[Rfam]
RNA sequence: AGAAUGGGCCUUUCAGGCAUCCUCUCCUAAAAACUUUUCAGGCCAGUUCUCCGGAACUGGCCUUUUUUUUUGGCAGA
Dot-bracket structure: .......((((...))))......................(((((((((....)))))))))...............
Numbered sequence: 001a002g003a004a005u006g007g008g009c010c011u012u013u014c015a016g017g018c019a020u021c022c023u024c025u026c027c028u029a030a031a032a033a034c035u036u037u038u039c040a041g042g043c044c045a046g047u048u049c050u051c052c053g054g055a056a057c058u059g060g061c062c063u064u065u066u067u068u069u070u071u072g073g074c075a076g077a
Stems, first nucleotide, its partner, number of pairs: 008018004041062009
Annotation: The record is a 77-nucleotide RNA sequence from Sphingorhabdus sp. SMR4y, which matches "Makes More Granules Regulator RNA (mmgR)" in Rfam. By type it is a small RNA. SuhB later renamed mmgR (makes more granules regulator) was a putative non-coding RNA found multiple times in the Agrobacterium tumefaciens genome and related alpha-proteobacteria. Other non-coding RNAs uncovered in the same analysis include: speF, ybhL, metA, and serC.Several studies inSinorhizobium meliloti showed that suhB element is indeed a non-coding RNA:firstly it was detected on Northern blot and called Sm8RNA, secondly in an RNAseq study referred to as SmelC689.The mutant phenotype's (strain lacking the small RNA) cytoplasm contains higher content of polyhydroxybutyrate (PBH)storage granules than wild type strain. The sRNA is required to limit the PBH intracellular accumulation when the nitrogen-fixing Sinorhizobium meliloti is under condition of surplus carbon in relation to nitrogen. It has been renamed to mmgR. Further study confirmed that mmgR fine-tunes the regulation of PBH storage.Northern blot confirmed the expression of the sRNA in other rhizobia species. Taxonomically the source falls in Sphingorhabdus (Bacteria, Pseudomonadati, Sphingomonadales, Sphingorhabdaceae).